[Rfam]
RNA: L4-Archaeoglobi ribosomal protein leades
RNA sequence: CUGAAGGCCGCGUUCGGGUCAAUUGCGGACUGCAACACCCGAUCUCCCUCCGGGCACCCCCAGACGAGGUGCCCGCCGAGGGGGAGCGCGUCACCGUCAG
Numbered sequence: 001c002u003g004a005a006g007g008c009c010g011c012g013u014u015c016g017g018g019u020c021a022a023u024u025g026c027g028g029a030c031u032g033c034a035a036c037a038c039c040c041g042a043u044c045u046c047c048c049u050c051c052g053g054g055c056a057c058c059c060c061c062a063g064a065c066g067a068g069g070u071g072c073c074c075g076c077c078g079a080g081g082g083g084g085a086g087c088g089c090g091u092c093a094c095c096g097u098c099a100g
Base pairs, nucleotide, nucleotide: 001100002099003098004097009090010089011088012087013086015041016040017039018038023035024034025033026032027031043085044084045083046082047081051075052074053073054072055071056070057069058068